RNA sequence: GCCAUCGACAUGGGAGAGACCGGGGCACGCCCGGCGCCGAAGGAGCAACCGCCCCGGAAACUCUCAGGCAGAAGGACCAUGGCGAUGCG
Numbered sequence: 001g002c003c004a005u006c007g008a009c010a011u012g013g014g015a016g017a018g019a020c021c022g023g024g025g026c027a028c029g030c031c032c033g034g035c036g037c038c039g040a041a042g043g044a045g046c047a048a049c050c051g052c053c054c055c056g057g058a059a060a061c062u063c064u065c066a067g068g069c070a071g072a073a074g075g076a077c078c079a080u081g082g083c084g085a086u087g088c089g
Stems, first nucleotide, its partner, number of pairs: 006084002009081005020034004036069003039065002043063003049057002
This 89-nucleotide sequence from Sphingomonas melonis belongs to the Rfam family "Glycine riboswitch aptamer".
The organism belongs to Sphingomonas, within Bacteria.